A member of the RNA family "Y RNA" from Microcebus murinus, 102 nucleotides long.
Y RNAs are components of the Ro ribonucleoprotein particle (Ro RNP), in association with Ro60 and La proteins.

RNA sequence: GGUUGGUCCCAGUGCAGUGGUGUUUACAACUAAUUGAUCACAACCAGUUACAGAUUCCUUUGUUCCUUCUCCACUCCCACUGUUCCACUUGAUCAGUCUUAA
Numbered sequence: 001g002g003u004u005g006g007u008c009c010c011a012g013u014g015c016a017g018u019g020g021u022g023u024u025u026a027c028a029a030c031u032a033a034u035u036g037a038u039c040a041c042a043a044c045c046a047g048u049u050a051c052a053g054a055u056u057c058c059u060u061u062g063u064u065c066c067u068u069c070u071c072c073a074c075u076c077c078c079a080c081u082g083u084u085c086c087a088c089u090u091g092a093u094c095a096g097u098c099u100u101a102a
Stems, first nucleotide, its partner, number of pairs: 001098008011089001014086001016081005022076001028064003032060002

The organism belongs to Microcebus, within Eukaryota.